A member of the RNA family "Acido-Lenti-1 RNA" from Stieleria varia, 55 nucleotides long. The organism belongs to Stieleria, within Bacteria.
RNA sequence: CCCAGGGCGGCGCUACGCUUUGCCCUGGGCUAUUUUGUCAUGUCCCUUCGGGACG
Number, nucleotide and partner (000 for none) at each position: 001c029002c028003c027004a026005g025006g024007g023008c022009g021010g020011c000012g000013c000014u000015a000016c000017g000018c000019u000020u010021u009022g008023c007024c006025c005026u004027g003028g002029g001030c000031u000032a000033u000034u000035u000036u000037g000038u000039c000040a000041u000042g054043u053044c052045c051046c050047u000048u000049c000050g046051g045052g044053a043054c042055g000

The family's RNA type in Rfam is small RNA.